NiCo (Nickel/Cobalt) riboswitch aptamer: a 105-nucleotide RNA from Sinanaerobacter chloroacetimidivorans. Its Rfam clan is "NiCo_riboswitches". For this family Rfam cites "Bacterial riboswitches cooperatively bind Ni(2+) or Co(2+) ions and control expression of heavy metal transporters" (Furukawa et al., Mol Cell, 2015). It scores 77 bits against the family's covariance model.
[Rfam]
RNA sequence: ACAGUACAAACUGAGCAGGCGAUGAACCUUUUAACGGAGGUCAUGGGGCCGGGCCACCCAACGAGUGGCAACAGAUUGCAAUUUAUGCACAUCUGCGGGACAGUA
Numbered sequence: 001a002c003a004g005u006a007c008a009a010a011c012u013g014a015g016c017a018g019g020c021g022a023u024g025a026a027c028c029u030u031u032u033a034a035c036g037g038a039g040g041u042c043a044u045g046g047g048g049c050c051g052g053g054c055c056a057c058c059c060a061a062c063g064a065g066u067g068g069c070a071a072c073a074g075a076u077u078g079c080a081a082u083u084u085a086u087g088c089a090c091a092u093c094u095g096c097g098g099g100a101c102a103g104u105a
Stems, first nucleotide, its partner, number of pairs: 010104004016099001018050003022044004027039001053069005072095005
The organism belongs to Sinanaerobacter, within Bacteria.